RNA sequence: GUGCCCUGUGAUUACUAAAAGACGCGUUAUUACGAGGACAAAUGCUGGCUGCUCACCCCCUCCCUCUCUACCUCCACACCCCAUUCUGCCCCAAUUGUUCCCUUCUAUUGCUUUACUCUUCCGCCCCCCUUGCCCCUUUUCUGAGUAACCAGUGUCCGCUGAGCACGAUUAUGAGAUCUGAGGGCUU
Numbered sequence: 001g002u003g004c005c006c007u008g009u010g011a012u013u014a015c016u017a018a019a020a021g022a023c024g025c026g027u028u029a030u031u032a033c034g035a036g037g038a039c040a041a042a043u044g045c046u047g048g049c050u051g052c053u054c055a056c057c058c059c060c061u062c063c064c065u066c067u068c069u070a071c072c073u074c075c076a077c078a079c080c081c082c083a084u085u086c087u088g089c090c091c092c093a094a095u096u097g098u099u100c101c102c103u104u105c106u107a108u109u110g111c112u113u114u115a116c117u118c119u120u121c122c123g124c125c126c127c128c129c130u131u132g133c134c135c136c137u138u139u140u141c142u143g144a145g146u147a148a149c150c151a152g153u154g155u156c157c158g159c160u161g162a163g164c165a166c167g168a169u170u171a172u173g174a175g176a177u178c179u180g181a182g183g184g185c186u187u
Stems, first nucleotide, its partner, number of pairs: 001187001003185004036100006

This 187-nucleotide RNA from Xenopus laevis belongs to the Rfam family "Small nucleolar RNA SNORD97". A reference for the family is Vitali et al. (2003), "Identification of 13 novel human modification guide RNAs", Nucleic Acids Res. It scores 76 bits against the family's covariance model. The source organism's lineage runs through Eukaryota, Opisthokonta, Dipnotetrapodomorpha, Xenopodinae and Xenopus. Its family is annotated with nucleolus and RNA processing in the Gene Ontology.